[Rfam]
RNA sequence: CCUCAGGACACCUUGCCCUAACGCAAGGCUUUCGACCUGGGAGGGUCGCUAUA
Numbered sequence: 001c002c003u004c005a006g007g008a009c010a011c012c013u014u015g016c017c018c019u020a021a022c023g024c025a026a027g028g029c030u031u032u033c034g035a036c037c038u039g040g041g042a043g044g045g046u047c048g049c050u051a052u053a
Stems, first nucleotide, its partner, number of pairs: 011028006033048006
A member of the RNA family "serC leader" from Devosia sp. A8/3-2, 53 nucleotides long.
This family is a putative regulatory RNA structure that is found upstream of the serC-serA operon in some alpha-proteobacteria. The final stem of the structure overlaps the ribosome binding site of the serC reading frame.
It scores 42 bits against the family's covariance model.
Rfam links the family to the GO term regulation of gene expression.